The record is a 107-nucleotide sequence from Brevundimonas sp. Root1423, which matches "Cauldobacter sRNA CC3552" in Rfam.
The match comes from Rfam's covariance-model search (101 bits).
Taxonomically the source falls in Brevundimonas (Bacteria, Pseudomonadati, Caulobacterales, Caulobacteraceae).
For this family Rfam cites "Small non-coding RNAs in Caulobacter crescentus" (Landt et al., Mol Microbiol, 2008).
It is annotated as a small RNA.
RNA sequence: GGAGGCGGCGACGCCCCCCCGACUUGAGACUGACGAAAGUCAGUCUGUCGCCUCCGCGACUCAUUCUCGAUGAUGCGACCUGAUGGCGGACCGGAAACGGUCCGCCU
Numbered sequence: 001g002g003a004g005g006c007g008g009c010g011a012c013g014c015c016c017c018c019c020c021g022a023c024u025u026g027a028g029a030c031u032g033a034c035g036a037a038a039g040u041c042a043g044u045c046u047g048u049c050g051c052c053u054c055c056g057c058g059a060c061u062c063a064u065u066c067u068c069g070a071u072g073a074u075g076c077g078a079c080c081u082g083a084u085g086g087c088g089g090a091c092c093g094g095a096a097a098c099g100g101u102c103c104g105c106c107u
Base pairs, nucleotide, nucleotide: 001055002054003053004052005051006050007049008048009047010046012021013020028045029044030043031042032041033040034039085106086105087104088103089102090101091100092099